[Rfam]
RNA: tRNA
RNA sequence: GCCUUCGUAGCUGAGUUGGUUACAGCGUCCGACUUUUAGAACUGCGGUUCGAAAUCGGGCGAUCACGGGUUCGAGCCCCGUCGAAGGCU
Numbered sequence: 001g002c003c004u005u006c007g008u009a010g011c012u013g014a015g016u017u018g019g020u021u022a023c024a025g026c027g028u029c030c031g032a033c034u035u036u037u038a039g040a041a042c043u044g045c046g047g048u049u050c051g052a053a054a055u056c057g058g059g060c061g062a063u064c065a066c067g068g069g070u071u072c073g074a075g076c077c078c079c080g081u082c083g084a085a086g087g088c089u
Stems, first nucleotide, its partner, number of pairs: 001088007010026004028059005065081005